[Rfam]
Nucleotides: 064
Base pairs, nucleotide, nucleotide: 001064002063003062004061005060006059007058009056010055011054012053013052017048018047019046020045021044023042024041025040026039028037029036
Number, partner (000 for none) and nucleotide at each position: 001064g002063c003062c004061g005060g006059u007058c008000c009056u010055c011054g012053g013052u014000a015000g016000u017048g018047g019046c020045u021044c022000c023042c024041g025040g026039g027000a028037g029036c030000g031000g032000a033000a034000c035000a036029g037028c038000a039026c040025c041024c042023g043000a044021g045020a046019g047018c048017u049000u050000c051000g052013a053012u054011c055010g056009a057000u058007g059006g060005c061004c062003g063002g064001c